[Rfam]
RNA: U1 spliceosomal RNA
RNA sequence: UAAUCUACCUGGCAGGGGAGAUACCAUGAUCACAAAGGUGGAUUUCCCCAGAGCGAGGCUGAUCCAUUAGUGCCGGAUGUGCUGACCUCUGCCAUUUCCCCAAAUGUGGGAAAUCCAACUGCAUAAUUAUAGUAGUGGGGGACUGUGUUCACACUCUCCCCUG
Numbered sequence: 001u002a003a004u005c006u007a008c009c010u011g012g013c014a015g016g017g018g019a020g021a022u023a024c025c026a027u028g029a030u031c032a033c034a035a036a037g038g039u040g041g042a043u044u045u046c047c048c049c050a051g052a053g054c055g056a057g058g059c060u061g062a063u064c065c066a067u068u069a070g071u072g073c074c075g076g077a078u079g080u081g082c083u084g085a086c087c088u089c090u091g092c093c094a095u096u097u098c099c100c101c102a103a104a105u106g107u108g109g110g111a112a113a114u115c116c117a118a119c120u121g122c123a124u125a126a127u128u129a130u131a132g133u134a135g136u137g138g139g140g141g142a143c144u145g146u147g148u149u150c151a152c153a154c155u156c157u158c159c160c161c162u163g
Base pairs, nucleotide, nucleotide: 012122013121014120015119016049017048018046019045020044021043024041025040026039027038050090051089052088053087055086057083058082059081062078063077064076065075095113096112097111099109100108137162138161139160140159141158142157145154146153147152